[Rfam]
RNA sequence: AGCUGGUUUCUCCUCUGGUGAUAAAUCCAGCAGUGCUUAUCACCGGGAGUAAAUCUGCUCG
Dot-bracket structure: (((.(((((((((..((((((((..............)))))))))))).))))).)))..
The record is a 61-nucleotide RNA from Caenorhabditis brenneri, which matches "mir-35_2 microRNA precursor family" in Rfam. The family is grouped with related families in Rfam's "mir-36 clan". It scores 76 bits against the family's covariance model. NCBI's taxonomy places the organism under Eukaryota, Opisthokonta, Nematoda, Rhabditomorpha, Caenorhabditis.